[Rfam]
RNA sequence: CAUGUAUCCCCGUAUCCGCUUCUUCUUUUUCUUUUUUCGCUUCUGUUAAUGAGGCUUUUUGUCGUGUGAGAAAGAAAACGAAGACGCACAGAAAAGCCUCCCGCUGCGGAGGCUUUUUUUAU
Numbered sequence: 001c002a003u004g005u006a007u008c009c010c011c012g013u014a015u016c017c018g019c020u021u022c023u024u025c026u027u028u029u030u031c032u033u034u035u036u037u038c039g040c041u042u043c044u045g046u047u048a049a050u051g052a053g054g055c056u057u058u059u060u061g062u063c064g065u066g067u068g069a070g071a072a073a074g075a076a077a078a079c080g081a082a083g084a085c086g087c088a089c090a091g092a093a094a095a096g097c098c099u100c101c102c103g104c105u106g107c108g109g110a111g112g113c114u115u116u117u118u119u120u121a122u
Base pairs, nucleotide, nucleotide: 018087019086021084022083023082024081025080027078028077029076030075031074032073033072034071036069037068040051042049053063054062055061093116094115095114096113097112098111099110100109101108
Rfam assigns this 122-nucleotide RNA from Morganella morganii to the family "Phenylalanine leader peptide". The family's RNA type in Rfam is cis-regulatory leader. The source organism's lineage runs through Bacteria, Pseudomonadati, Gammaproteobacteria, Morganellaceae and Morganella morganii subsp. morganii. The family has 71 seed sequences and 379 matches in Rfam 15.1. Rfam links the family to the GO term cellular amino acid metabolic process.